[Rfam]
RNA sequence: CGGGAUGUAGCGCAGUCUGGUUAGCGCACCUGCUUUGGGAGCAGGGGGUCGUCGGUUCGAAUCCGACCAUCCCGA
Numbered sequence: 001c002g003g004g005a006u007g008u009a010g011c012g013c014a015g016u017c018u019g020g021u022u023a024g025c026g027c028a029c030c031u032g033c034u035u036u037g038g039g040a041g042c043a044g045g046g047g048g049u050c051g052u053c054g055g056u057u058c059g060a061a062u063c064c065g066a067c068c069a070u071c072c073c074g075a
Stems, first nucleotide, its partner, number of pairs: 001074007010027004029045005051067005
Overview:
The family of this 75-nucleotide RNA sequence from Cloacibacillus sp. An23 is "tRNA". Rfam's curators write: Transfer RNA (tRNA) molecules are approximately 80 nucleotides in length. It is annotated as a transfer RNA. The base pairs follow the family's consensus structure, which is taken from published work.